Shown here is a 146-nucleotide RNA from Planobispora rosea, a member of the family "c-di-AMP riboswitch aptamer (ydaO/yuaA leader)". It scores 89 bits against the family's covariance model. Lineage of the source: Bacteria > Bacillati > Streptosporangiales > Streptosporangiaceae > Planobispora.
RNA sequence: AGGGCCGGUUCGCCGAAUCUCCGAACCUGGGGAACCGGGGACCCAUACCUCCGGGGUGAAUCCGUGGUGCGCCCGCGCGCCACGGUAGGGCUGUCUCCCGGCCCGAACCCGUCAGCUAACCCGGUAGGCGGCAGAGGAGAGGAGCC
Numbered sequence: 001a002g003g004g005c006c007g008g009u010u011c012g013c014c015g016a017a018u019c020u021c022c023g024a025a026c027c028u029g030g031g032g033a034a035c036c037g038g039g040g041a042c043c044c045a046u047a048c049c050u051c052c053g054g055g056g057u058g059a060a061u062c063c064g065u066g067g068u069g070c071g072c073c074c075g076c077g078c079g080c081c082a083c084g085g086u087a088g089g090g091c092u093g094u095c096u097c098c099c100g101g102c103c104c105g106a107a108c109c110c111g112u113c114a115g116c117u118a119a120c121c122c123g124g125u126a127g128g129c130g131g132c133a134g135a136g137g138a139g140a141g142g143a144g145c146c
Stems, first nucleotide, its partner, number of pairs: 011130004018033005034125006044053001054110003062085010088104004